Nucleotides: 084
Base pairs, nucleotide, nucleotide: 001084002083005080006079007078
Number, partner (000 for none) and nucleotide at each position: 001084u002083u003000c004000u005080g006079c007078c008000a009000a010000u011000g012000a013000u014000g015000a016000g017000u018000u019000g020000c021000a022000a023000c024000a025000u026000u027000a028000u029000u030000g031000c032000c033000u034000a035000c036000a037000u038000u039000g040000u041000u042000u043000g044000a045000c046000a047000a048000a049000c050000a051000a052000a053000u054000u055000c056000a057000u058000g059000a060000u061000a062000a063000a064000a065000a066000a067000g068000c069000a070000a071000c072000a073000a074000c075000u076000g077000a078007g079006g080005c081000u082000u083002a084001a

Record summary:
Small nucleolar RNA SNORD34: an 84-nucleotide sequence. The family is grouped with related families in Rfam's "SNORD34 clan". Rfam 15.1 lists 1,319 matches to the family in 583 species. Gene Ontology terms of the family: nucleolus and RNA processing. Rfam's curators write: snoRNA U34 is found in intron 5 of the ribosomal protein L13a gene in humans. It is annotated as a C/D-box small nucleolar RNA. Rfam's curators put it in the seed alignment.